Shown here is a 102-nucleotide RNA from Photobacterium ganghwense, a member of the family "Manganese Mn2+ riboswitch aptamer (yybP-ykoY)".
RNA sequence: CCUUUGGGGAGUAGCCUCUUGUUCUGUACAAGACAAACGUCAACAUAAUUGAAGCAAAAUCUUCAUGGCGUUUGUGACCCACGCAAUCCUACUUGUGGGUUU
Numbered sequence: 001c002c003u004u005u006g007g008g009g010a011g012u013a014g015c016c017u018c019u020u021g022u023u024c025u026g027u028a029c030a031a032g033a034c035a036a037a038c039g040u041c042a043a044c045a046u047a048a049u050u051g052a053a054g055c056a057a058a059a060u061c062u063u064c065a066u067g068g069c070g071u072u073u074g075u076g077a078c079c080c081a082c083g084c085a086a087u088c089c090u091a092c093u094u095g096u097g098g099g100u101u102u
Base pairs, nucleotide, nucleotide: 019031020030021029033075034074035073036072037071038070039069040068041067042066050065051064052063053062054061076101077100078099079098080097081096082095
Record summary: On this family, see Argaman et al., Curr Biol 2001: "Novel small RNA-encoding genes in the intergenic regions of Escherichia coli". The pairing is the family consensus, mapped onto this sequence.